[Rfam]
RNA sequence: GAUUUAUAAAGAAGUGGUAAGAGAACAGGCUCUAAGACCCACUGGCAACCUCACAAAGAUUGUGAAAGGUGCCAAAUCCUGCCCCGAAAGGGAAAUAUAAAUA
Numbered sequence: 001g002a003u004u005u006a007u008a009a010a011g012a013a014g015u016g017g018u019a020a021g022a023g024a025a026c027a028g029g030c031u032c033u034a035a036g037a038c039c040c041a042c043u044g045g046c047a048a049c050c051u052c053a054c055a056a057a058g059a060u061u062g063u064g065a066a067a068g069g070u071g072c073c074a075a076a077u078c079c080u081g082c083c084c085c086g087a088a089a090g091g092g093a094a095a096u097a098u099a100a101a102u103a
Stems, first nucleotide, its partner, number of pairs: 002102007013043005021032003026081004044073004049069002051065004077095001082092003
Notes: The family of this 103-nucleotide RNA sequence from Pedobacter puniceus is "SAM riboswitch aptamer (S box leader)". The source organism's lineage runs through Bacteria, Bacteroidota, Sphingobacteriia, Sphingobacteriaceae and Pedobacter.